About this RNA: Rfam assigns this 70-nucleotide RNA sequence from Anoxybacteroides amylolyticum to the family "skipping-rope RNA". The family's consensus secondary structure is taken from published work. The family's RNA type in Rfam is small RNA. NCBI's taxonomy places the organism under Bacteria, Bacillati, Bacillota, Bacilli, Anoxybacteroides. A search with the family's covariance model found it, with a score of 46 bits.
[Rfam]
RNA sequence: GCUUUCAGAGGAUGGAACAGGCAGCCAUCGCCCUUGUUGGAGAUGAGGGAGUGCCACCCCGCCUGAAGUU
Numbered sequence: 001g002c003u004u005u006c007a008g009a010g011g012a013u014g015g016a017a018c019a020g021g022c023a024g025c026c027a028u029c030g031c032c033c034u035u036g037u038u039g040g041a042g043a044u045g046a047g048g049g050a051g052u053g054c055c056a057c058c059c060c061g062c063c064u065g066a067a068g069u070u
Stems, first nucleotide, its partner, number of pairs: 001070001003068006011029005020055004031040001045062001047060003
Dot-bracket structure: (.((((((..(((((....[[[[.))))).(........)....(.(((..]]]]..))).))))))).)